[Rfam]
Shown here is a 419-nucleotide RNA from Aurantiacibacter rhizosphaerae, a member of the family "Bacterial RNase P class A".
RNA sequence: CCGGGGAGCCGGGCAGCCGCGUCAUCAAUGUGCUUCGGCGCAAAGGUGUCGAGGAAAGUCCGGGCUCCACGAAACAAGGGUGGCGGGUAACGCCCGCCGUGGGCAACCGCAGGGAAAGUGCCACAGAGAGCAAACCGCCGAUGGCCCGUCAAACGGCACAGGCAAGGGUGAAAGGGUGCGGUAAAAGCGCACCGGGGGGCUGGUAACAGUUCCCGUCAUGGCAAACCCCACCCGGAGCAAGACCGCAUAGGGGUCUCGCGCCUUUAAAAGGGCAGCAGCGUUUCGCUGCGAGAGACCCGGGUUGGUUGCUUGAGCGCGCGGGAGCAAUCCCCCGCCGAGAUGAAUGGCUGCCCCCGCGGCGCUGAUGUGUCAGCAUAUCGGCUGCGGGACAGAACCCGGCUUACAGGCUCCCCGGCAAA
Numbered sequence: 001c002c003g004g005g006g007a008g009c010c011g012g013g014c015a016g017c018c019g020c021g022u023c024a025u026c027a028a029u030g031u032g033c034u035u036c037g038g039c040g041c042a043a044a045g046g047u048g049u050c051g052a053g054g055a056a057a058g059u060c061c062g063g064g065c066u067c068c069a070c071g072a073a074a075c076a077a078g079g080g081u082g083g084c085g086g087g088u089a090a091c092g093c094c095c096g097c098c099g100u101g102g103g104c105a106a107c108c109g110c111a112g113g114g115a116a117a118g119u120g121c122c123a124c125a126g127a128g129a130g131c132a133a134a135c136c137g138c139c140g141a142u143g144g145c146c147c148g149u150c151a152a153a154c155g156g157c158a159c160a161g162g163c164a165a166g167g168g169u170g171a172a173a174g175g176g177u178g179c180g181g182u183a184a185a186a187g188c189g190c191a192c193c194g195g196g197g198g199g200c201u202g203g204u205a206a207c208a209g210u211u212c213c214c215g216u217c218a219u220g221g222c223a224a225a226c227c228c229c230a231c232c233c234g235g236a237g238c239a240a241g242a243c244c245g246c247a248u249a250g251g252g253g254u255c256u257c258g259c260g261c262c263u264u265u266a267a268a269a270g271g272g273c274a275g276c277a278g279c280g281u282u283u284c285g286c287u288g289c290g291a292g293a294g295a296c297c298c299g300g301g302u303u304g305g306u307u308g309c310u311u312g313a314g315c316g317c318g319c320g321g322g323a324g325c326a327a328u329c330c331c332c333c334g335c336c337g338a339g340a341u342g343a344a345u346g347g348c349u350g351c352c353c354c355c356g357c358g359g360c361g362c363u364g365a366u367g368u369g370u371c372a373g374c375a376u377a378u379c380g381g382c383u384g385c386g387g388g389a390c391a392g393a394a395c396c397c398g399g400c401u402u403a404c405a406g407g408c409u410c411c412c413c414g415g416c417a418a419a
Stems, first nucleotide, its partner, number of pairs: 001415010011404001012352007020051002023048004056402003060399005065237004074283001076281001078233005083097005098112001099110004113228002118226002120222003135167002137163003142158002145155001175193006194217001195214008241307004251298006275289005316335003320331004
The family's consensus secondary structure is taken from published work. A search with the family's covariance model found it, with a score of 276 bits. The source organism's lineage runs through Bacteria, Pseudomonadati, Pseudomonadota, Erythrobacteraceae and Aurantiacibacter.